[Rfam]
Nucleotides: 079
Base pairs, nucleotide, nucleotide: 001079002078003077004076006074008072009071010070012068013067015065016064018062022057023056024055025053026052028050029049030048
Number, partner (000 for none) and nucleotide at each position: 001079u002078u003077g004076g005000u006074u007000u008072a009071a010070a011000u012068c013067a014000u015065u016064g017000u018062a019000g020000a021000u022057c023056u024055a025053c026052a027000c028050u029049u030048u031000g032000a033000a034000a035000a036000u037000u038000g039000a040000a041000c042000c043000u044000c045000c046000a047000g048030a049029a050028a051000a052026u053025g054000g055024u056023g057022g058000g059000a060000c061000a062018u063000c064016c065015a066000u067013u068012g069000u070010u071009u072008u073000c074006a075000u076004c077003c078002a079001a